Background: The family of this 76-nucleotide sequence from Ipomoea nil is "Small nucleolar RNA Z105".
RNA sequence: CGAGCAUGAUGAUGAUGAACACAAGUUUUUCCGAUUACUGGCAUGAACGGAAUAUUAAACCUCCUACUCAUUCUGA
Numbered sequence: 001c002g003a004g005c006a007u008g009a010u011g012a013u014g015a016u017g018a019a020c021a022c023a024a025g026u027u028u029u030u031c032c033g034a035u036u037a038c039u040g041g042c043a044u045g046a047a048c049g050g051a052a053u054a055u056u057a058a059a060c061c062u063c064c065u066a067c068u069c070a071u072u073c074u075g076a
Stems, first nucleotide, its partner, number of pairs: 006071004027051002031045001
Dot-bracket structure: .....((((.................((..(.............)....))................)))).....
The literature on the family includes a 2003 paper in Nucleic Acids Res by Chen et al., "The high diversity of snoRNAs in plants: identification and comparative study of 120 snoRNA genes from Oryza sativa". It is annotated as a C/D-box small nucleolar RNA. Pairs were carried over by alignment from the consensus structure, which was predicted with CMfinder. The family has 11 seed sequences and 621 matches in Rfam 15.1.